Notes: This 96-nucleotide sequence belongs to the Rfam family "SAM-I/IV (S-adenosyl methionine) riboswitch aptamer".
RNA sequence: UAAUCACAUCAAGAGAGGGUGAAAGCCCCGCCAACCAGCCUAAUCGGGCAACGGUGGUCUUAAGAUGCGACCCUUAGGGUAACAAUUCGAUUAAGG
Numbered sequence: 001u002a003a004u005c006a007c008a009u010c011a012a013g014a015g016a017g018g019g020u021g022a023a024a025g026c027c028c029c030g031c032c033a034a035c036c037a038g039c040c041u042a043a044u045c046g047g048g049c050a051a052c053g054g055u056g057g058u059c060u061u062a063a064g065a066u067g068c069g070a071c072c073c074u075u076a077g078g079g080u081a082a083c084a085a086u087u088c089g090a091u092u093a094a095g096g
Base pairs, nucleotide, nucleotide: 007067008066009065010064015029017028018027019026020025030058031057032056035054036053038049039048040047042091044089046087070080071079072078073077
The family's consensus secondary structure is taken from published work. The sequence is in the family's curated seed alignment.